Overview:
The record is an 89-nucleotide RNA from Pleodorina starrii, which matches "Small nucleolar RNA R64/Z200 family" in Rfam. Rfam 15.1 lists 748 matches to the family in 228 species. The base pairs follow the family's consensus structure, which was predicted with PFOLD. Rfam classes the family as a C/D-box small nucleolar RNA. The source organism's lineage runs through Eukaryota, Viridiplantae, core chlorophytes, Volvocaceae and Pleodorina.

RNA sequence: AGGAAGCUAUGAUGGUACAUAAAUAAUACAUGUUAGACUACUGACCCCUAUACGGGGCAUGAGUACAACAUACCUGUGCUGAGCUUCCU
Number, nucleotide and partner (000 for none) at each position: 001a089002g088003g087004a086005a085006g084007c083008u000009a000010u000011g000012a000013u000014g000015g000016u000017a000018c000019a000020u000021a000022a000023a000024u000025a000026a000027u000028a000029c000030a000031u000032g000033u000034u000035a000036g000037a000038c000039u000040a000041c000042u000043g000044a000045c057046c056047c055048c054049u000050a000051u000052a000053c000054g048055g047056g046057g045058c000059a000060u000061g000062a000063g000064u000065a000066c000067a000068a000069c000070a000071u000072a000073c000074c000075u000076g000077u000078g000079c000080u000081g000082a000083g007084c006085u005086u004087c003088c002089u001